[Rfam]
RNA sequence: CCUUCAUGAUGUCAUCUGCACGAGUCUUACACCAUGUGUCAGUGCCAGAACCUGAAAAGGUGAACCCACUGGUGCUGCCAUGGCAGCAAGGGGACGACUGGUUGGGGUUACCAACAGUCUGAAAGGA
Numbered sequence: 001c002c003u004u005c006a007u008g009a010u011g012u013c014a015u016c017u018g019c020a021c022g023a024g025u026c027u028u029a030c031a032c033c034a035u036g037u038g039u040c041a042g043u044g045c046c047a048g049a050a051c052c053u054g055a056a057a058a059g060g061u062g063a064a065c066c067c068a069c070u071g072g073u074g075c076u077g078c079c080a081u082g083g084c085a086g087c088a089a090g091g092g093g094a095c096g097a098c099u100g101g102u103u104g105g106g107g108u109u110a111c112c113a114a115c116a117g118u119c120u121g122a123a124a125g126g127a
Base pairs, nucleotide, nucleotide: 001126002125003124004123